[Rfam]
Nucleotides: 127
Base pairs, nucleotide, nucleotide: 001058002057003056004055005054006053007052008051009050011048014042015041017039020036021035028033067123068122069121070120073118074117075116076115080107081106082105083104084103085102086101087100088099
Number, partner (000 for none) and nucleotide at each position: 001058u002057g003056c004055a005054u006053g007052u008051g009050u010000g011048u012000g013000c014042g015041u016000g017039u018000g019000c020036g021035u022000g023000c024000u025000c026000a027000a028033c029000u030000g031000g032000u033028g034000g035021a036020c037000a038000a039017a040000g041015g042014c043000a044000u045000g046000a047000a048011a049000g050009a051008c052007a053006c054005a055004u056003g057002c058001a059000a060000a061000a062000a063000u064000a065000g066000a067123u068122c069121c070120u071000u072000c073118u074117u075116u076115g077000c078000a079000a080107c081106a082105g083104a084103g085102u086101u087100c088099a089000c090000u091000a092000u093000u094000c095000a096000g097000g098000a099088u100087g101086a102085g103084c104083u105082u106081u107080g108000a109000u110000a111000c112000a113000u114000a115076u116075a117074a118073a119000a120070a121069g122068g123067a124000c125000a126000c127000a
Shown here is a 127-nucleotide RNA from Nannospalax galili, a member of the family "Small nucleolar RNA SNORA40". The literature on the family includes a 1997 paper in J Mol Biol by Ofengand and Bakin, "Mapping to nucleotide resolution of pseudouridine residues in large subunit ribosomal RNAs from representative eukaryotes, prokaryotes, archaebacteria, mitochondria and chloroplasts". From the family's description: The snoRNA ACA 40 belongs to the H/ACA family of snoRNAs and guides the pseudouridylation of 28S rRNA subunit at position U4565. NB This family has a high threshold value to exclude a large number of closely related sequences that do not appear to have conserved H and ACA boxes, and may be pseudogenes.